This 78-nucleotide RNA from Triplophysa rosa belongs to the Rfam family "mir-19 microRNA precursor family". A reference for the family is Lagos-Quintana et al. (2001), "Identification of novel genes coding for small expressed RNAs", Science. Its family is annotated with miRNA-mediated post-transcriptional gene silencing and RISC complex in the Gene Ontology. The family's consensus secondary structure was predicted with RNAalifold.
[Rfam]
RNA sequence: GACUUCGGUCAGUUUUGCUGGUUUGCAUUCAGCUUUAAAAGUGGUGCUGUGCAAAUCCAUGCAAAACUGACCGUGGCA
Number, nucleotide and partner (000 for none) at each position: 001g000002a000003c076004u075005u000006c073007g072008g071009u070010c069011a068012g067013u066014u065015u064016u063017g062018c061019u000020g058021g057022u055023u054024u053025g052026c051027a050028u049029u000030c000031a048032g047033c046034u000035u000036u000037a000038a000039a000040a000041g000042u000043g000044g000045u000046g033047c032048u031049g028050u027051g026052c025053a024054a023055a022056u000057c021058c020059a000060u000061g018062c017063a016064a015065a014066a013067c012068u011069g010070a009071c008072c007073g006074u000075g004076g003077c000078a000